[Rfam]
RNA: DUF3268 RNA
RNA sequence: GGCAGGAGCUUGCGUUCAGGCUCUCGAUACGUCUAUGGUACGGCGUCAGACUUCGUCUCGGGAAGAGGCAAGGAAUCGUUACGGAUUUGCGCACUGAGCAAGUCCACAACAACGCAGGCA
Numbered sequence: 001g002g003c004a005g006g007a008g009c010u011u012g013c014g015u016u017c018a019g020g021c022u023c024u025c026g027a028u029a030c031g032u033c034u035a036u037g038g039u040a041c042g043g044c045g046u047c048a049g050a051c052u053u054c055g056u057c058u059c060g061g062g063a064a065g066a067g068g069c070a071a072g073g074a075a076u077c078g079u080u081a082c083g084g085a086u087u088u089g090c091g092c093a094c095u096g097a098g099c100a101a102g103u104c105c106a107c108a109a110c111a112a113c114g115c116a117g118g119c120a
Stems, first nucleotide, its partner, number of pairs: 008119009025078004029046005051072003055069004083105003087101004